Rfam assigns this 69-nucleotide sequence from Enterobius vermicularis to the family "mir-2 microRNA precursor family". On this family, see Lee and Ambros, Science 2001: "An extensive class of small RNAs in Caenorhabditis elegans".
[Rfam]
Nucleotides: 069
Stems, first nucleotide, its partner, number of pairs: 005063009014053004019048004025044003
Number, partner (000 for none) and nucleotide at each position: 001000c002000a003000g004000c005063g006062c007061g008060u009059c010058a011057a012056a013055g014053u015052g016051g017050u018000g019048g020047u021046g022045a023000u024000u025044u026043g027042u028000c029000g030000u031000g032000a033000a034000u035000u036000a037000a038000g039000g040000u041000c042027a043026u044025a045022u046021c047020a048019c049000a050017g051016c052015c053014a054000g055013c056012u057011u058010u059009g060008a061007u062006g063005u064000g065000c066000u067000g068000u069000a